A member of the RNA family "Small nucleolar RNA SNORA30/SNORA37 family" from Muntiacus reevesi, 130 nucleotides long. The source organism's lineage runs through Eukaryota, Gnathostomata, Mammalia, Theria and Muntiacus. The family's RNA type in Rfam is H/ACA-box small nucleolar RNA. Rfam describes the family as follows. The members of this family belong to the H/ACA class of snoRNAs that guide the sites of modification of uridines to pseudouridines. This family includes human ACA30 (SNORA30), ACA37 (SNORA37) and the mouse homolog MBI-26. On this family, see Huttenhofer et al., EMBO J 2001: "RNomics: an experimental approach that identifies 201 candidates for novel, small, non-messenger RNAs in mouse".
RNA sequence: CUAGCACUUUCACAGGUCCUCCCCCAGGCAGCGGGGCCAGGAUUUGGUAGCUGGUGCUGUAAUUGACACCCUUGAUUACAUCCUUGCCCUGGGACUGUGUCAGUGGCGGCCGUCAAUCAGUGGGACGGGG
Numbered sequence: 001c002u003a004g005c006a007c008u009u010u011c012a013c014a015g016g017u018c019c020u021c022c023c024c025c026a027g028g029c030a031g032c033g034g035g036g037c038c039a040g041g042a043u044u045u046g047g048u049a050g051c052u053g054g055u056g057c058u059g060u061a062a063u064u065g066a067c068a069c070c071c072u073u074g075a076u077u078a079c080a081u082c083c084u085u086g087c088c089c090u091g092g093g094a095c096u097g098u099g100u101c102a103g104u105g106g107c108g109g110c111c112g113u114c115a116a117u118c119a120g121u122g123g124g125a126c127g128g129g130g
Base pairs, nucleotide, nucleotide: 003058004057005056006055007054008053013046014045015044017042018041019040020039022036023035024034025033069124070123071122072120073119074118075117077115080113081112084109085108086107087106088105089103090102091101092100